[Rfam]
Shown here is a 138-nucleotide sequence from Cyanistes caeruleus, a member of the family "Small nucleolar RNA SNORA8". A search with the family's covariance model found it, with a score of 63 bits. Rfam links the family to the GO terms RNA processing and nucleolus.
RNA sequence: UGCAGUGUUACAGUAUCUGCACCCAGCAGCUUUCUCCUGGUGGGAUGGUCAAAAAGCAGUGCUACACCAGUGCAGCAUUUGGUGUCCUUGGUUUUCAUUCUGCUGUUUGUUAAACCUGGUAUUUUUGCUAAAACAGUC
Numbered sequence: 001u002g003c004a005g006u007g008u009u010a011c012a013g014u015a016u017c018u019g020c021a022c023c024c025a026g027c028a029g030c031u032u033u034c035u036c037c038u039g040g041u042g043g044g045a046u047g048g049u050c051a052a053a054a055a056g057c058a059g060u061g062c063u064a065c066a067c068c069a070g071u072g073c074a075g076c077a078u079u080u081g082g083u084g085u086c087c088u089u090g091g092u093u094u095u096c097a098u099u100c101u102g103c104u105g106u107u108u109g110u111u112a113a114a115c116c117u118g119g120u121a122u123u124u125u126u127g128c129u130a131a132a133a134c135a136g137u138c
Stems, first nucleotide, its partner, number of pairs: 002062003006058002016055001018053001020047002023044002025041001027039003065127002069123003073118003081107004
Dot-bracket structure: .(((.((........(.(.((.(((.(((.......))).).)).)).....).).)).)))..((..(((.(((.....((((...................))))........)))..)))..))...........